This 123-nucleotide sequence from Gossypium hirsutum belongs to the Rfam family "MIR7504 microRNA precursor family". It scores 96 bits against the family's covariance model. The family's consensus secondary structure was predicted with RNAalifold. Gene Ontology terms of the family: miRNA-mediated post-transcriptional gene silencing and RISC complex.
RNA sequence: AAUAGGAGAAUGACAAAUCACAUUUUUCAUCUUAAUUUUUAGCUUUUUCCUCCUGAAAAAAUUCAAAUCCAACUAAAAACGCUACAAAUCAGGAGGAAAAAUCUAACUUGUCCUUCUCCUAUU
Numbered sequence: 001a002a003u004a005g006g007a008g009a010a011u012g013a014c015a016a017a018u019c020a021c022a023u024u025u026u027u028c029a030u031c032u033u034a035a036u037u038u039u040u041a042g043c044u045u046u047u048u049c050c051u052c053c054u055g056a057a058a059a060a061a062u063u064c065a066a067a068u069c070c071a072a073c074u075a076a077a078a079a080c081g082c083u084a085c086a087a088a089u090c091a092g093g094a095g096g097a098a099a100a101a102u103c104u105a106a107c108u109u110g111u112c113c114u115u116c117u118c119c120u121a122u123u
Base pairs, nucleotide, nucleotide: 001123002122003121004120005119006118007117008116009115010114012112013111014110015109016108018106020104022102023101024100025099026098027097030094031093032092033091035089036088037087038086041083042082045079046078047077048076